[Rfam]
RNA sequence: CAAGAAUUCCCCGGAGAAGGACUCCGGGAAAAUAGCAAACAAUAACUUUAAGAUAGUAAUAGGAAUGAAACGAAUAUGUUUCAAU
Numbered sequence: 001c002a003a004g005a006a007u008u009c010c011c012c013g014g015a016g017a018a019g020g021a022c023u024c025c026g027g028g029a030a031a032a033u034a035g036c037a038a039a040c041a042a043u044a045a046c047u048u049u050a051a052g053a054u055a056g057u058a059a060u061a062g063g064a065a066u067g068a069a070a071c072g073a074a075u076a077u078g079u080u081u082c083a084a085u
Stems, first nucleotide, its partner, number of pairs: 007030002010028007068081004

About this RNA: Rfam assigns this 85-nucleotide sequence from Musa balbisiana to the family "Plastid-rpl20 3UTR RNA". The base pairs follow the family's consensus structure, which was predicted with LocARNA. About the family: Plastid rpl20 is a non-coding RNA (ncRNA) recognised in plastids. It was found in the three prime untranslated region (3UTR) of rpl20 gene, it presence in the 3UTR region sugest a role in transcript maduration. The match comes from Rfam's covariance-model search (55 bits). By type it is a cis-regulatory element.